[Rfam]
RNA sequence: GAGAAGUGAUGACACAGAGACAGCUGGGUGUGUUUGGCUGGGGUGUGUGUGAGAGGGGGAUGGGGGCAGAGCCUGGGCUGGGGGCUGUGUGUGGGUGUGUGGGGGCUCUCCUGGGGGCACUGAUGGCAGUGCUGAGCCAGGAGUGCAUCUGAGGCGUGUUGGGCACCGCGGGGCCCCUCUGCAACACUGCCUGUGAUUAAAGCCCCAAGAGAGCCCACCAGGAGAGCCCCAGGCAGCCCAAAUGUCUCCAGGGUCACCAGUGAUCCUGUGCUCUGAUCUCA
Numbered sequence: 001g002a003g004a005a006g007u008g009a010u011g012a013c014a015c016a017g018a019g020a021c022a023g024c025u026g027g028g029u030g031u032g033u034u035u036g037g038c039u040g041g042g043g044u045g046u047g048u049g050u051g052a053g054a055g056g057g058g059g060a061u062g063g064g065g066g067c068a069g070a071g072c073c074u075g076g077g078c079u080g081g082g083g084g085c086u087g088u089g090u091g092u093g094g095g096u097g098u099g100u101g102g103g104g105g106c107u108c109u110c111c112u113g114g115g116g117g118c119a120c121u122g123a124u125g126g127c128a129g130u131g132c133u134g135a136g137c138c139a140g141g142a143g144u145g146c147a148u149c150u151g152a153g154g155c156g157u158g159u160u161g162g163g164c165a166c167c168g169c170g171g172g173g174c175c176c177c178u179c180u181g182c183a184a185c186a187c188u189g190c191c192u193g194u195g196a197u198u199a200a201a202g203c204c205c206c207a208a209g210a211g212a213g214c215c216c217a218c219c220a221g222g223a224g225a226g227c228c229c230c231a232g233g234c235a236g237c238c239c240a241a242a243u244g245u246c247u248c249c250a251g252g253g254u255c256a257c258c259a260g261u262g263a264u265c266c267u268g269u270g271c272u273c274u275g276a277u278c279u280c281a
Stems, first nucleotide, its partner, number of pairs: 001280004157186005162177002166173002